[Rfam]
Record summary
A member of the RNA family "SAM riboswitch aptamer (S box leader)" from Cerasibacillus quisquiliarum, 115 nucleotides long. Taxonomically the source falls in Cerasibacillus (Bacteria, Bacillota, Caryophanales, Bacillaceae). Clan: SAM clan.
RNA sequence: UUCUUAUCAAGAGAGAUUGAGGGACAGGCCCGAUGACAUCUCGGCAGCAGAUUCUAUUUAAGAAAACUGUGCCAAUUCCUGCAAAUACGUUCCGUUCGUAUUUGAAAGAUGAGAA
Numbered sequence: 001u002u003c004u005u006a007u008c009a010a011g012a013g014a015g016a017u018u019g020a021g022g023g024a025c026a027g028g029c030c031c032g033a034u035g036a037c038a039u040c041u042c043g044g045c046a047g048c049a050g051a052u053u054c055u056a057u058u059u060a061a062g063a064a065a066a067c068u069g070u071g072c073c074a075a076u077u078c079c080u081g082c083a084a085a086u087a088c089g090u091u092c093c094g095u096u097c098g099u100a101u102u103u104g105a106a107a108g109a110u111g112a113g114a115a
Base pairs, nucleotide, nucleotide: 001115002114003113004112005111006110007109008108013042014041015040016039017038021031022030023029025081026080027079028078043073044072045071046070048069049068052064053063054062077107082104083103084102085101086100087099088098089097
It scores 90 bits against the family's covariance model.